[Rfam]
Shown here is a 128-nucleotide RNA sequence from Strongylus vulgaris, a member of the family "Nematode snoRNA ceN36-1". On this family, see Jia et al., BMC Mol Biol 2007: "Systematic identification of non-coding RNA 2,2,7-trimethylguanosine cap structures in Caenorhabditis elegans". Rfam links the family to the GO terms RNA processing and nucleolus. The family has 5 seed sequences and 28 matches in Rfam 15.1. It scores 55 bits against the family's covariance model. The base pairs follow the family's consensus structure, which was predicted with RNAalifold.
RNA sequence: GACCGCUCUCCAGCUCCGUGCGAGAUGAAAAAUACUCGAUGCGGCGUUUCAAUGAGCGAAAAACAAUGAAGAGCGACGAUUAUUGAUGUUUCUGGUGGAAUAUCGAUCACUAAGAGCUUCGUACAAUC
Numbered sequence: 001g002a003c004c005g006c007u008c009u010c011c012a013g014c015u016c017c018g019u020g021c022g023a024g025a026u027g028a029a030a031a032a033u034a035c036u037c038g039a040u041g042c043g044g045c046g047u048u049u050c051a052a053u054g055a056g057c058g059a060a061a062a063a064c065a066a067u068g069a070a071g072a073g074c075g076a077c078g079a080u081u082a083u084u085g086a087u088g089u090u091u092c093u094g095g096u097g098g099a100a101u102a103u104c105g106a107u108c109a110c111u112a113a114g115a116g117c118u119u120c121g122u123a124c125a126a127u128c
Stems, first nucleotide, its partner, number of pairs: 004058005012048003016044005025036001082107004087102006